[Rfam]
RNA sequence: GGGCAUUCAGAAGGCUUGCAAUCUGGGCUACAAACAGAGAACCUAGUUUCUCACAUACCCGCCCAGGGGAAAGUCCCCGGACCCGUGGCAGAAAGUGCCCUGGAUAAACCCAGUCUCGGCCUGCGCUCCUCCACAAAGCCAAGACGUUCAGUAGAACCGAGCUUGGGGAUUGCUUGUCGAAUUUGUCAGCGUUAAGAGGAAUGCAAACACUAUGCACGAAACGCUUCAACAGAACGGGGCUCAUUCUCCGAAUGCA
Numbered sequence: 001g002g003g004c005a006u007u008c009a010g011a012a013g014g015c016u017u018g019c020a021a022u023c024u025g026g027g028c029u030a031c032a033a034a035c036a037g038a039g040a041a042c043c044u045a046g047u048u049u050c051u052c053a054c055a056u057a058c059c060c061g062c063c064c065a066g067g068g069g070a071a072a073g074u075c076c077c078c079g080g081a082c083c084c085g086u087g088g089c090a091g092a093a094a095g096u097g098c099c100c101u102g103g104a105u106a107a108a109c110c111c112a113g114u115c116u117c118g119g120c121c122u123g124c125g126c127u128c129c130u131c132c133a134c135a136a137a138g139c140c141a142a143g144a145c146g147u148u149c150a151g152u153a154g155a156a157c158c159g160a161g162c163u164u165g166g167g168g169a170u171u172g173c174u175u176g177u178c179g180a181a182u183u184u185g186u187c188a189g190c191g192u193u194a195a196g197a198g199g200a201a202u203g204c205a206a207a208c209a210c211u212a213u214g215c216a217c218g219a220a221a222c223g224c225u226u227c228a229a230c231a232g233a234a235c236g237g238g239g240c241u242c243a244u245u246c247u248c249c250g251a252a253u254g255c256a
Stems, first nucleotide, its partner, number of pairs: 003255006010248002014208001016206004022067007037052005072241002075239004087099004100113004116180003122176002125173002129168003136164004146157004
This 256-nucleotide sequence from Poecilia reticulata belongs to the Rfam family "RNase MRP". The match comes from Rfam's covariance-model search (147 bits). A reference for the family is Schmitt et al. (1993), "Secondary structure of RNase MRP RNA as predicted by phylogenetic comparison", FASEB J. It is annotated as a ribozyme. About the family: RNase MRP is an enzymatically active ribonucleoprotein with two distinct roles in eukaryotes. In mitochondria it plays a direct role in the initiation of mitochondrial DNA replication. In the nucleus it is involved in precursor rRNA processing, where it cleaves the internal transcribed spacer 1 between 18S and 5.8S rRNAs. Despite distinct functions, RNase MRP has been shown to be evolutionarily related to RNase P. Like eukaryotic RNase P, RNase MRP is not catalytically active without associated protein subunits.